[Rfam]
RNA sequence: UGUUAAAAAUUUAUCCAAAUCUAUUGUUCAAAAAUGGUGUAGCUGAUGGAAUAACUAAACAGUUACAUGUGAUAUGCCAUGUCUACCUCCUGCUGACUUAUAGAGACUAGUUUUUGAUAGUGAAAAUGGAUGAAAUUUUUAACA
Numbered sequence: 001u002g003u004u005a006a007a008a009a010u011u012u013a014u015c016c017a018a019a020u021c022u023a024u025u026g027u028u029c030a031a032a033a034a035u036g037g038u039g040u041a042g043c044u045g046a047u048g049g050a051a052u053a054a055c056u057a058a059a060c061a062g063u064u065a066c067a068u069g070u071g072a073u074a075u076g077c078c079a080u081g082u083c084u085a086c087c088u089c090c091u092g093c094u095g096a097c098u099u100a101u102a103g104a105g106a107c108u109a110g111u112u113u114u115u116g117a118u119a120g121u122g123a124a125a126a127u128g129g130a131u132g133a134a135a136u137u138u139u140u141a142a143c144a
Base pairs, nucleotide, nucleotide: 002143003142004141005140006139007138008137009136010135011134012132013131014130015129017127020124022122023121024120025119027117028116030114031113032112
Annotation: Shown here is a 144-nucleotide RNA sequence from Gossypium anomalum, a member of the family "MIR7502 microRNA precursor family". The family's consensus secondary structure was predicted with RNAalifold. The source organism's lineage runs through Eukaryota, Embryophyta, Magnoliopsida, Malvaceae and Gossypium. Its family is annotated with miRNA-mediated post-transcriptional gene silencing and RISC complex in the Gene Ontology.